[Rfam]
RNA sequence: CGGCUGUGAGGAAGAUCUUAUCUGUGUACAGAGGCAUAUUCAUGCUUAUGAAGGCUACACAACCCUCUAAGAAGUUCUGAGCUG
Numbered sequence: 001c002g003g004c005u006g007u008g009a010g011g012a013a014g015a016u017c018u019u020a021u022c023u024g025u026g027u028a029c030a031g032a033g034g035c036a037u038a039u040u041c042a043u044g045c046u047u048a049u050g051a052a053g054g055c056u057a058c059a060c061a062a063c064c065c066u067c068u069a070a071g072a073a074g075u076u077c078u079g080a081g082c083u084g
Stems, first nucleotide, its partner, number of pairs: 001084004

The family of this 84-nucleotide sequence from Trema andersonii is "Small nucleolar RNA U61". The family has 8 seed sequences and 401 matches in Rfam 15.1. Gene Ontology terms of the family: nucleolus and RNA processing. It scores 60 bits against the family's covariance model.